[Rfam]
RNA sequence: AUUACCAGUUUGUUGUUCAUUGCGCUGCGUGUUUUUUUUUUACAAGAGCGAGAAUAUUUGAAACACGCUGCGCAAUGAACAGCAAACUGGUAAU
Dot-bracket structure: ...((((((((((((.((((..((...((((((((........................))))))))...))..)))).))))))))))))...
Shown here is a 94-nucleotide RNA from Operophtera brumata, a member of the family "mir-980 microRNA precursor family". The organism belongs to Operophtera, within Eukaryota. Its family is annotated with miRNA-mediated post-transcriptional gene silencing and RISC complex in the Gene Ontology.